A member of the RNA family "Group II catalytic intron D1-D4-6" from Oleispira antarctica, 310 nucleotides long. On this family, see Bonen and Vogel, Trends Genet 2001: "The ins and outs of group II introns".
[Rfam]
RNA sequence: CAAGUCCCUGUCGGGUAAGUUUAACCAACCACCCGUAUCGAGUGUUGCGCCUGUGGCGGAGUUUGUGGAUCGAAAGUACUUUCCCGUAUUUUCUUUUCAAAUUAAAUACAGCAAGCGAACAAAACAGGUGAAGCGUACACAGAGAAAUAUAUAGGCCAUAGGGACUGACGUGGUCCUGAAGUGCUGGUAUCGCUCCGAGAAUUGUGAAUUCUGAUUGACGAGGUUUCUUCUUAUAACGCUAGGGCCAUCGAAGUCCAUGCAAAGCAAUCGUAAUGGUUAGAUUGUGGCGAGUCAGCGGCGUCUAUUAAUU
Numbered sequence: 001c002a003a004g005u006c007c008c009u010g011u012c013g014g015g016u017a018a019g020u021u022u023a024a025c026c027a028a029c030c031a032c033c034c035g036u037a038u039c040g041a042g043u044g045u046u047g048c049g050c051c052u053g054u055g056g057c058g059g060a061g062u063u064u065g066u067g068g069a070u071c072g073a074a075a076g077u078a079c080u081u082u083c084c085c086g087u088a089u090u091u092u093c094u095u096u097u098c099a100a101a102u103u104a105a106a107u108a109c110a111g112c113a114a115g116c117g118a119a120c121a122a123a124a125c126a127g128g129u130g131a132a133g134c135g136u137a138c139a140c141a142g143a144g145a146a147a148u149a150u151a152u153a154g155g156c157c158a159u160a161g162g163g164a165c166u167g168a169c170g171u172g173g174u175c176c177u178g179a180a181g182u183g184c185u186g187g188u189a190u191c192g193c194u195c196c197g198a199g200a201a202u203u204g205u206g207a208a209u210u211c212u213g214a215u216u217g218a219c220g221a222g223g224u225u226u227c228u229u230c231u232u233a234u235a236a237c238g239c240u241a242g243g244g245c246c247a248u249c250g251a252a253g254u255c256c257a258u259g260c261a262a263a264g265c266a267a268u269c270g271u272a273a274u275g276g277u278u279a280g281a282u283u284g285u286g287g288c289g290a291g292u293c294a295g296c297g298g299c300g301u302c303u304a305u306u307a308a309u310u
Stems, first nucleotide, its partner, number of pairs: 012035004019029003022279004038143002042140004046135002048130007058120001192301002195298003211295006217255003222249003260289001264285006
From the family's description: Group II introns are found in rRNA, tRNA and mRNA of organelles in fungi, plants and protists, and also in mRNA in bacteria.